The family of this 198-nucleotide sequence from Miscanthus lutarioriparius is "MIR1435 microRNA precursor family". The organism belongs to Miscanthus, within Eukaryota.

[Rfam]
RNA sequence: UAGAUUUGUCGUAAGUCAAACUAUUUUAAGUUUAACCAAAUUUAUAGGAAAGAACAUCAAUAUUUAUGUCACCAAAUAGAUAUGAUAUGAAAAUAUAUUUCAUGAUAAAUCUAAUAAUACCUAUUUGGUAUCAUAAACAUUAGUAUUUUUUUAUAAAUUUGAUCAAACUUGAAAUGGUUUGACUUAGGACAAAUCUAA
Numbered sequence: 001u002a003g004a005u006u007u008g009u010c011g012u013a014a015g016u017c018a019a020a021c022u023a024u025u026u027u028a029a030g031u032u033u034a035a036c037c038a039a040a041u042u043u044a045u046a047g048g049a050a051a052g053a054a055c056a057u058c059a060a061u062a063u064u065u066a067u068g069u070c071a072c073c074a075a076a077u078a079g080a081u082a083u084g085a086u087a088u089g090a091a092a093a094u095a096u097a098u099u100u101c102a103u104g105a106u107a108a109a110u111c112u113a114a115u116a117a118u119a120c121c122u123a124u125u126u127g128g129u130a131u132c133a134u135a136a137a138c139a140u141u142a143g144u145a146u147u148u149u150u151u152u153a154u155a156a157a158u159u160u161g162a163u164c165a166a167a168c169u170u171g172a173a174a175u176g177g178u179u180u181g182a183c184u185u186a187g188g189a190c191a192a193a194u195c196u197a198a
Stems, first nucleotide, its partner, number of pairs: 005193005012186015031167003035163001045153008056144002059141003063137006072128008
Dot-bracket structure: ....(((((..(((((((((((((((....(((.(.........((((((((...((.(((.((((((...((((((((.........................................))))))))...)))))).))).)).)))))))).........).)))....)))))))))))))))..))))).....